[Rfam]
RNA sequence: CCCCUUGUCAUCUGGGGAGUAGCCAGCCGUUCGCAGAAGCGAGCGGGCCGUAUGUCAACAUAUUUGGCCGAGAGGCCGUGGCAUGCGGGAUGCGGGGUGGACGGGCGAAGGCUCGGGCCGGCCGUAUC
Numbered sequence: 001c002c003c004c005u006u007g008u009c010a011u012c013u014g015g016g017g018a019g020u021a022g023c024c025a026g027c028c029g030u031u032c033g034c035a036g037a038a039g040c041g042a043g044c045g046g047g048c049c050g051u052a053u054g055u056c057a058a059c060a061u062a063u064u065u066g067g068c069c070g071a072g073a074g075g076c077c078g079u080g081g082c083a084u085g086c087g088g089g090a091u092g093c094g095g096g097g098u099g100g101a102c103g104g105g106c107g108a109a110g111g112c113u114c115g116g117g118c119c120g121g122c123c124g125u126a127u128c
Stems, first nucleotide, its partner, number of pairs: 027046003048088010065078005089128007